[Rfam]
mir-17 microRNA precursor family: an 80-nucleotide RNA from Anguilla anguilla. Its family is annotated with miRNA-mediated post-transcriptional gene silencing and RISC complex in the Gene Ontology. Rfam describes the family as follows. This family represents the microRNA (miRNA) precursor mir-17, family, which includes mir-20, mir-91, and mir-103. miRNAs are transcribed as ~70nt precursors (modelled here) and subsequently processed by the Dicer enzyme to give a ~22nt product. In this case the mature sequence comes from the 3' arm of the precursor. The extents of the hairpin precursors are not generally known and are estimated based on hairpin prediction. On this family, see Lagos-Quintana et al., Science 2001: "Identification of novel genes coding for small expressed RNAs".
RNA sequence: CCGCGUGAGCUAAAGUGCUUACAGUGCAGGUAGCGAUGAUCUGCAGCCUACUGCAGUGUGAGCACUUCUUUCCCACGCUG
Number, nucleotide and partner (000 for none) at each position: 001c000002c000003g000004c077005g076006u075007g074008a000009g072010c000011u000012a000013a067014a066015g065016u064017g063018c062019u061020u060021a059022c058023a057024g000025u055026g054027c053028a000029g052030g051031u050032a049033g048034c000035g000036a000037u000038g000039a000040u000041c000042u000043g000044c000045a000046g000047c000048c033049u032050a031051c030052u029053g027054c026055a025056g000057u023058g022059u021060g020061a019062g018063c017064a016065c015066u014067u013068c000069u000070u000071u000072c009073c000074c007075a006076c005077g004078c000079u000080g000